[Rfam]
RNA sequence: GACUCGCUCGACCCGACACAACAUUCUGCUGCAAUGUUGUGCGACCUGCAGUGUCGGUCGAGCGAAGUC
Numbered sequence: 001g002a003c004u005c006g007c008u009c010g011a012c013c014c015g016a017c018a019c020a021a022c023a024u025u026c027u028g029c030u031g032c033a034a035u036g037u038u039g040u041g042c043g044a045c046c047u048g049c050a051g052u053g054u055c056g057g058u059c060g061a062g063c064g065a066a067g068u069c
Base pairs, nucleotide, nucleotide: 001069002068003067004066005064006063007062009060010059011058012057013056020038021037022036023035024034025033043055044054045053